[Rfam]
RNA sequence: UGUCCAUUUCCGGUUAUCAUGGUACUGGUGCUGUGUGCUUCAGAAGUACAGUACUAUGAUAACUGAAGAUUGGUA
Numbered sequence: 001u002g003u004c005c006a007u008u009u010c011c012g013g014u015u016a017u018c019a020u021g022g023u024a025c026u027g028g029u030g031c032u033g034u035g036u037g038c039u040u041c042a043g044a045a046g047u048a049c050a051g052u053a054c055u056a057u058g059a060u061a062a063c064u065g066a067a068g069a070u071u072g073g074u075a
Stems, first nucleotide, its partner, number of pairs: 011065015027049001029048004
Dot-bracket structure: ..........(((((((((((((((.(.((((............))))).)))))))))))))))..........

Rfam assigns this 75-nucleotide RNA sequence from Acipenser ruthenus to the family "mir-101 microRNA precursor family". For this family Rfam cites "miRNPs: a novel class of ribonucleoproteins containing numerous microRNAs" (Mourelatos et al., Genes Dev, 2002). The match comes from Rfam's covariance-model search (84 bits).